[Rfam]
RNA sequence: UUUGGGAAAUGAAGAAAAUUCGCAAUGCCGAACGCAUUCUAUUUGUGUUUUUGAUGAGAAUUUGCACGUCAGUCUGAUCCCGUA
Numbered sequence: 001u002u003u004g005g006g007a008a009a010u011g012a013a014g015a016a017a018a019u020u021c022g023c024a025a026u027g028c029c030g031a032a033c034g035c036a037u038u039c040u041a042u043u044u045g046u047g048u049u050u051u052u053g054a055u056g057a058g059a060a061u062u063u064g065c066a067c068g069u070c071a072g073u074c075u076g077a078u079c080c081c082g083u084a
Stems, first nucleotide, its partner, number of pairs: 001084001003082005
Dot-bracket structure: (.(((((......................................................................))))).)

Source information:
Small nucleolar RNA Z122: an 84-nucleotide RNA sequence from Taxus chinensis. Rfam classes the family as a C/D-box small nucleolar RNA. Taxonomically the source falls in Taxus (Eukaryota, Streptophytina, Acrogymnospermae, Pinopsida). The match comes from Rfam's covariance-model search (59 bits). Gene Ontology terms of the family: RNA processing and nucleolus. The base pairs follow the family's consensus structure, which was predicted with PFOLD.